[Rfam]
Nucleotides: 107
Base pairs, nucleotide, nucleotide: 005103006102007101009099012096016093019092021091023090024089025088026087027086028085029084031082032081034079035078036077037076038075039074040073041072042071043070044069045068046067047066050063051062052061053060054059
Number, partner (000 for none) and nucleotide at each position: 001000c002000c003000g004000c005103u006102c007101c008000c009099u010000c011000c012096c013000a014000a015000u016093a017000a018000g019092c020000c021091g022000c023090c024089g025088g026087a027086u028085c029084u030000c031082c032081u033000a034079g035078u036077g037076a038075g039074g040073a041072g042071g043070c044069c045068g046067g047066g048000a049000c050063c051062g052061c053060c054059g055000g056000a057000u058000c059054c060053g061052g062051u063050g064000a065000c066047c067046c068045c069044g070043g071042u072041c073040u074039c075038c076037u077036c078035g079034c080000c081032g082031g083000c084029g085028g086027a087026u088025c089024c090023g091021u092019g093016u094000c095000a096012g097000a098000a099009g100000u101007g102006g103005a104000g105000a106000u107000u